This 114-nucleotide sequence from Kribbella sp. VKM Ac-2500 belongs to the Rfam family "Glycine riboswitch aptamer". This family represents the bacterial glycine riboswitch. Lineage of the source: Bacteria > Bacillati > Actinomycetes > Propionibacteriales > Kribbella. It scores 62 bits against the family's covariance model.
[Rfam]
RNA sequence: ACACAGCACUCGGGAGAGUCCCAGCAGCUCGCGUCCUUCACCGGCACGGCGGCUGGGCGCCGAAGGGGCAAUUCCUCCCCGGAACCUCUCAGGCCCAUGGACCGGGUGCCUCAG
Dot-bracket structure: .....((((((((......((((((..........................)))))).(((((..(((...((.......))...))))).))).......)))))))).....
Numbered sequence: 001a002c003a004c005a006g007c008a009c010u011c012g013g014g015a016g017a018g019u020c021c022c023a024g025c026a027g028c029u030c031g032c033g034u035c036c037u038u039c040a041c042c043g044g045c046a047c048g049g050c051g052g053c054u055g056g057g058c059g060c061c062g063a064a065g066g067g068g069c070a071a072u073u074c075c076u077c078c079c080c081g082g083a084a085c086c087u088c089u090c091a092g093g094c095c096c097a098u099g100g101a102c103c104g105g106g107u108g109c110c111u112c113a114g
Stems, first nucleotide, its partner, number of pairs: 006109008020057006059094003062090002066088003072082002